[Rfam]
The family of this 77-nucleotide RNA from Anguilla anguilla is "mir-219 microRNA precursor family". A search with the family's covariance model found it, with a score of 60 bits.
RNA sequence: UCCGGGGCUGAUUGUCCAAACGCAAUUUGUGUCUACCUCUACAAAAUCAGGAGCUGUGGAUGGACAUCACGCCCUGA
Number, nucleotide and partner (000 for none) at each position: 001u000002c076003c000004g074005g073006g072007g000008c000009u069010g068011a067012u066013u000014g065015u064016c063017c062018a061019a000020a000021c058022g057023c056024a055025a000026u053027u052028u051029g000030u049031g048032u000033c000034u000035a000036c000037c000038u000039c000040u000041a000042c000043a000044a000045a000046a000047u000048c031049a030050g000051g028052a027053g026054c000055u024056g023057u022058g021059g000060a000061u018062g017063g016064a015065c014066a012067u011068c010069a009070c000071g000072c006073c005074c004075u000076g002077a000
For this family Rfam cites "Vertebrate microRNA genes" (Lim et al., Science, 2003).